[Rfam]
RNA sequence: CUCUGGAAAGCAGGCACCGAUCCAUCGGCGCCUCACCGACGAGGUAAGCCGCGGCCGCGGCCAAUCUUUCAGGUUCCCAGGACAGAG
Numbered sequence: 001c002u003c004u005g006g007a008a009a010g011c012a013g014g015c016a017c018c019g020a021u022c023c024a025u026c027g028g029c030g031c032c033u034c035a036c037c038g039a040c041g042a043g044g045u046a047a048g049c050c051g052c053g054g055c056c057g058c059g060g061c062c063a064a065u066c067u068u069u070c071a072g073g074u075u076c077c078c079a080g081g082a083c084a085g086a087g
Stems, first nucleotide, its partner, number of pairs: 001087005012033004035074003038070002042068003048061004
Annotation:
The family of this 87-nucleotide RNA from Aliidongia dinghuensis is "Glycine riboswitch aptamer". About the family: This family represents the bacterial glycine riboswitch. A search with the family's covariance model found it, with a score of 40 bits.